A member of the RNA family "Small nucleolar RNA SNORA15" from Canis lupus, 148 nucleotides long. The source organism's lineage runs through Eukaryota, Vertebrata, Boreoeutheria, Caniformia and Canis lupus. About the family: ACA15 is a member of the H/ACA class of snoRNA that guide the sites of modification of uridines to pseudouridines. On this family, see Huttenhofer et al., EMBO J 2001: "RNomics: an experimental approach that identifies 201 candidates for novel, small, non-messenger RNAs in mouse". The family's consensus secondary structure was predicted with RNAfold. It is annotated as an H/ACA-box small nucleolar RNA.
[Rfam]
RNA sequence: GCAUGGCCAAAUACUGUGUUCUUUUUUAUCAGUUGUUUACAUAGCCAGACAUCAUGCAAAAAAAUAAGAAAUAAAGCAUUCUUCCCUAUAGAGUGGUUACCAUGGCAUGCUAAGCUUUUCCAUAUCAUUAUUAAAGGGAAAUACAAAU
Dot-bracket structure: ((((((.......((((((...................)))))).......))))))........................((.(((.(((......((..((((.(((..(.....)..))).))))))))).)))..)).......